[Rfam]
The record is a 117-nucleotide RNA sequence from Streptococcus ovuberis, which matches "Streptococcus RNA 266" in Rfam. For this family Rfam cites "Identification of 88 regulatory small RNAs in the TIGR4 strain of the human pathogen Streptococcus pneumoniae" (Acebo et al., RNA, 2012). By type it is a small RNA. Taxonomically the source falls in Streptococcus (Bacteria, Bacillati, Bacilli, Streptococcaceae). It scores 64 bits against the family's covariance model. The pairing is the family consensus, mapped onto this sequence. Rfam 15.1 lists 223 matches to the family in 34 species.
RNA sequence: AGUGAGUAUUUUCUCCCGUCGGAGAUUUCCUCACUACUAAUCUUAGUAUGUUUUGAUACACCAAAAAAGCUCCAUAAUCUCCAUAGGGGAGCUACCCACUACAGAAAUUAUAGAGCC
Numbered sequence: 001a002g003u004g005a006g007u008a009u010u011u012u013c014u015c016c017c018g019u020c021g022g023a024g025a026u027u028u029c030c031u032c033a034c035u036a037c038u039a040a041u042c043u044u045a046g047u048a049u050g051u052u053u054u055g056a057u058a059c060a061c062c063a064a065a066a067a068a069g070c071u072c073c074a075u076a077a078u079c080u081c082c083a084u085a086g087g088g089g090a091g092c093u094a095c096c097c098a099c100u101a102c103a104g105a106a107a108u109u110a111u112a113g114a115g116c117c
Stems, first nucleotide, its partner, number of pairs: 001035006038050002042046001069116004074111005080105002084101003088097002
Dot-bracket structure: ((((((.......................))))))..((..(...)..))..................((((.(((((.((..(((.((......)).)))..)).))))).)))).